RNA: RAGATH-18 RNA
RNA sequence: CCUUUCGAGUGUUGUAUCAAACCAAAGUAGCUAAUGCGAAAUGGAACACGAUGAAGAAGGAA
Numbered sequence: 001c002c003u004u005u006c007g008a009g010u011g012u013u014g015u016a017u018c019a020a021a022c023c024a025a026a027g028u029a030g031c032u033a034a035u036g037c038g039a040a041a042u043g044g045a046a047c048a049c050g051a052u053g054a055a056g057a058a059g060g061a062a
Base pairs, nucleotide, nucleotide: 001060002059003058004057005056009049010048011047012046013045022044023043024042030037031036